[Rfam]
RNA sequence: AACACUCGAACACCGCUUGGUAGGAGCGGGGGACCCACUUGCGGGCACCGACUCCGGUCGGGGUCCUUGGGGUGAAGCCGGCGGAUCCGUGUGAUCACCGGCCGGGCAGCAAUCUCUCGCCCGAACCCGACAGCUCACCUCGUAGGCGUCGAGAGGUCAC
Numbered sequence: 001a002a003c004a005c006u007c008g009a010a011c012a013c014c015g016c017u018u019g020g021u022a023g024g025a026g027c028g029g030g031g032g033a034c035c036c037a038c039u040u041g042c043g044g045g046c047a048c049c050g051a052c053u054c055c056g057g058u059c060g061g062g063g064u065c066c067u068u069g070g071g072g073u074g075a076a077g078c079c080g081g082c083g084g085a086u087c088c089g090u091g092u093g094a095u096c097a098c099c100g101g102c103c104g105g106g107c108a109g110c111a112a113u114c115u116c117u118c119g120c121c122c123g124a125a126c127c128c129g130a131c132a133g134c135u136c137a138c139c140u141c142g143u144a145g146g147c148g149u150c151g152a153g154a155g156g157u158c159a160c
Base pairs, nucleotide, nucleotide: 005024006023026143027142028141029140030139031138036069037068070128071127072126078101079100080099081098104122105121106120107119
RNA: c-di-AMP riboswitch aptamer (ydaO/yuaA leader)